[Rfam]
RNA: Purine riboswitch aptamer
Organism: Paenibacillus rhizosphaerae
RNA sequence: AUAAAUAACAGAUACAUUGUUCGUAUAACCUCAAUGAUAUGGUUUGAGGGUUUCUACUAGGGGCCGUAAAUCCCUGGCUACGAAUAGGCUGCUUUGCAUA
Numbered sequence: 001a002u003a004a005a006u007a008a009c010a011g012a013u014a015c016a017u018u019g020u021u022c023g024u025a026u027a028a029c030c031u032c033a034a035u036g037a038u039a040u041g042g043u044u045u046g047a048g049g050g051u052u053u054c055u056a057c058u059a060g061g062g063g064c065c066g067u068a069a070a071u072c073c074c075u076g077g078c079u080a081c082g083a084a085u086a087g088g089c090u091g092c093u094u095u096g097c098a099u100a
Stems, first nucleotide, its partner, number of pairs: 018086008029049006058076006